[Rfam]
RNA sequence: GAACCACUCCGUCAGGGAGUCAAGGCCAUACGGACAGCCGGGUUCACUGCCGA
Numbered sequence: 001g002a003a004c005c006a007c008u009c010c011g012u013c014a015g016g017g018a019g020u021c022a023a024g025g026c027c028a029u030a031c032g033g034a035c036a037g038c039c040g041g042g043u044u045c046a047c048u049g050c051c052g053a
Stems, first nucleotide, its partner, number of pairs: 001045005006020005
Source information: Streptococcus sRNA SpF59 (ldcC RNA): a 53-nucleotide RNA. Pairs were carried over by alignment from the consensus structure, which was predicted with mfold. It is one of the family's seed sequences. By type it is a small RNA.